The family of this 66-nucleotide sequence is "S15-Halobacteria ribosomal protein leader". It is one of the family's seed sequences. Its Rfam clan is "Ribosomal Protein S15 Leader clan". A reference for the family is Eckert and Weinberg (2020), "Discovery of 20 novel ribosomal leader candidates in bacteria and archaea", BMC Microbiol.
[Rfam]
RNA sequence: GGUGGGAACGCACGACCGCAAAUCUGACUCGCCGUCUACUUGGGCGGCUUGGGAUUGCGGGAGUGU
Numbered sequence: 001g002g003u004g005g006g007a008a009c010g011c012a013c014g015a016c017c018g019c020a021a022a023u024c025u026g027a028c029u030c031g032c033c034g035u036c037u038a039c040u041u042g043g044g045c046g047g048c049u050u051g052g053g054a055u056u057g058c059g060g061g062a063g064u065g066u
Stems, first nucleotide, its partner, number of pairs: 010066004016060006024053002031048007